[Rfam]
RNA sequence: CCUCUCAUUCUUGGCGCGUUCGGCUUCUUGAAUUAGUCGAACGCGAAUGUUGGCAGGUAAAGAAAAAUGUAACGUUUCUUCGGUUACGAUGUCCUCAUAUGUCGCGUUACUAUCCUCUGAGCGUUGCACAUUC
Numbered sequence: 001c002c003u004c005u006c007a008u009u010c011u012u013g014g015c016g017c018g019u020u021c022g023g024c025u026u027c028u029u030g031a032a033u034u035a036g037u038c039g040a041a042c043g044c045g046a047a048u049g050u051u052g053g054c055a056g057g058u059a060a061a062g063a064a065a066a067a068u069g070u071a072a073c074g075u076u077u078c079u080u081c082g083g084u085u086a087c088g089a090u091g092u093c094c095u096c097a098u099a100u101g102u103c104g105c106g107u108u109a110c111u112a113u114c115c116u117c118u119g120a121g122c123g124u125u126g127c128a129c130a131u132u133c
Base pairs, nucleotide, nucleotide: 001057002056003055005053015045016044017043018042019041020040022038023037024036025035071125072124073123074122075121076120086107087106088105091102092101

The family of this 133-nucleotide RNA from Notodromas monacha is "Small nucleolar RNA SNORA57".
Lineage of the source: Eukaryota > Ecdysozoa > Podocopa > Podocopida > Notodromas.
For this family Rfam cites "Identification of 13 novel human modification guide RNAs" (Vitali et al., Nucleic Acids Res, 2003).
From the family's description: U99 belongs to the H/ACA class of snoRNAs which are thought to guide the sites of modification of uridines to pseudouridines, the target for this family is unknown.
Rfam 15.1 lists 1,736 matches to the family in 530 species.
Its family is annotated with RNA processing and nucleolus in the Gene Ontology.